Rfam assigns this 107-nucleotide RNA sequence from Flavobacterium psychrophilum to the family "6S-Flavo RNA". Lineage of the source: Bacteria > Pseudomonadati > Bacteroidota > Flavobacteriia > Flavobacterium psychrophilum. The family's consensus secondary structure is taken from published work. Rfam's curators put it in the seed alignment.
RNA sequence: ACUCAACACUAACAAAUUAAAAUGAGCAAAUCAUCGUUACUAUAGCAAGCCAAUUUAGUUUGGAAGCUUGAACAACGAGUUAACUCAAAACUUGUCAAUCCGAGUUU
Numbered sequence: 001a002c003u004c005a006a007c008a009c010u011a012a013c014a015a016a017u018u019a020a021a022a023u024g025a026g027c028a029a030a031u032c033a034u035c036g037u038u039a040c041u042a043u044a045g046c047a048a049g050c051c052a053a054u055u056u057a058g059u060u061u062g063g064a065a066g067c068u069u070g071a072a073c074a075a076c077g078a079g080u081u082a083a084c085u086c087a088a089a090a091c092u093u094g095u096c097a098a099u100c101c102g103a104g105u106u107u
Base pairs, nucleotide, nucleotide: 023087024086025085026084034078035077036076037075038074044068045067046066050063051062052061053060